RNA: mir-2008 microRNA precursor family
RNA sequence: CCACUUUUUACCCCGUAUUAACAAUGUGGCUGAUGAGGAAUCUUAUGAACCAUCAGCCUCGCUGUCAAUACGAGGUAAGGAGUGA
Numbered sequence: 001c002c003a004c005u006u007u008u009u010a011c012c013c014c015g016u017a018u019u020a021a022c023a024a025u026g027u028g029g030c031u032g033a034u035g036a037g038g039a040a041u042c043u044u045a046u047g048a049a050c051c052a053u054c055a056g057c058c059u060c061g062c063u064g065u066c067a068a069u070a071c072g073a074g075g076u077a078a079g080g081a082g083u084g085a
Stems, first nucleotide, its partner, number of pairs: 002084011014072006021065003025061002028058008